[Rfam]
RNA sequence: AGGUAAUGUCUACUGCACCUUUAUCACUGUAGACACUCGGUCAUGCUGUGGGCGCCAAACGCCUUAGACGCCAGUCGUCGAGAGUGUGAUGUGAGGAGGGGUUCGAUGCCCC
Numbered sequence: 001a002g003g004u005a006a007u008g009u010c011u012a013c014u015g016c017a018c019c020u021u022u023a024u025c026a027c028u029g030u031a032g033a034c035a036c037u038c039g040g041u042c043a044u045g046c047u048g049u050g051g052g053c054g055c056c057a058a059a060c061g062c063c064u065u066a067g068a069c070g071c072c073a074g075u076c077g078u079c080g081a082g083a084g085u086g087u088g089a090u091g092u093g094a095g096g097a098g099g100g101g102u103u104c105g106a107u108g109c110c111c112c
Stems, first nucleotide, its partner, number of pairs: 001020004007035007036095004040090008050064005067079004098112005

Shown here is a 112-nucleotide sequence from Paenibacillus flagellatus, a member of the family "epsC RNA". NCBI's taxonomy places the organism under Bacteria, Bacillati, Bacilli, Caryophanales, Paenibacillus. A search with the family's covariance model found it, with a score of 106 bits.